[Rfam]
Shown here is a 35-nucleotide RNA from Myotis lucifugus, a member of the family "Iron response element I". The base pairs follow the family's consensus structure, which is taken from published work. It scores 39 bits against the family's covariance model. Rfam links the family to the GO term response to iron ion. The family has 62 seed sequences and 6,829 matches in Rfam 15.1. Taxonomically the source falls in Myotis (Eukaryota, Bilateria, Craniata, Boreoeutheria). On this family, see Sammarco et al., J Biol Chem 2008: "Ferritin L and H subunits are differentially regulated on a post-transcriptional level".
RNA sequence: CUGUUUCUUGCCUCAACAGUGUUUGGGCAGAAAAG
Numbered sequence: 001c002u003g004u005u006u007c008u009u010g011c012c013u014c015a016a017c018a019g020u021g022u023u024u025g026g027g028c029a030g031a032a033a034a035g
Base pairs, nucleotide, nucleotide: 001035002034005032006031007030008029010028012027013026014025015024016023017021